This 80-nucleotide RNA sequence from Salarias fasciatus belongs to the Rfam family "mir-19 microRNA precursor family". The source organism's lineage runs through Eukaryota, Neopterygii, Eurypterygia, Acanthomorphata and Salarias. The base pairs follow the family's consensus structure, which was predicted with RNAalifold. Clan: mir-19 clan.
RNA sequence: GUCUCUGGUCAGUUUUGCUGGUUUGCUUUCAGCUUUUCAAAUGUACUGCUGUGCAAAUCCAUGCAAAACUGAUCAUAGAG
Dot-bracket structure: ..((.(((((((((((((.(((((((.(..(((..............)))).))))).))..))))))))))))).))..